Shown here is a 164-nucleotide sequence from Cricetulus griseus, a member of the family "U1 spliceosomal RNA". Lineage of the source: Eukaryota > Deuterostomia > Teleostomi > Theria > Cricetulus. Rfam classes the family as a spliceosomal small nuclear RNA. A search with the family's covariance model found it, with a score of 112 bits. U1 is a small nuclear RNA (snRNA) component of the spliceosome (involved in pre-mRNA splicing). Pairs were carried over by alignment from the consensus structure, which is taken from published work.
[Rfam]
RNA sequence: UAUCUUAACUGGCAGGGGAGAUACCAUGAUCAUAAAGGUAGAUUUUCCAGGGUGAGGCUUAUCCAUUGUACUUCAGAUGUGCUGACCCCUGGAAUUUCCCCAAAUGCAGGAAACUUGACUGCAUAGUUUGUGGUGGUGGGGGACUGCGUUAAUGCUGUCCCCGG
Numbered sequence: 001u002a003u004c005u006u007a008a009c010u011g012g013c014a015g016g017g018g019a020g021a022u023a024c025c026a027u028g029a030u031c032a033u034a035a036a037g038g039u040a041g042a043u044u045u046u047c048c049a050g051g052g053u054g055a056g057g058c059u060u061a062u063c064c065a066u067u068g069u070a071c072u073u074c075a076g077a078u079g080u081g082c083u084g085a086c087c088c089c090u091g092g093a094a095u096u097u098c099c100c101c102a103a104a105u106g107c108a109g110g111a112a113a114c115u116u117g118a119c120u121g122c123a124u125a126g127u128u129u130g131u132g133g134u135g136g137u138g139g140g141g142g143a144c145u146g147c148g149u150u151a152a153u154g155c156u157g158u159c160c161c162c163g164g
Base pairs, nucleotide, nucleotide: 012122013121014120015119016048017047018046019045020044021043024041026039027038049090050089051088052087054086056083057082058081060079061078062077063076093116094115095113096112097111099109137163138162139161140160141159143158146155147154148153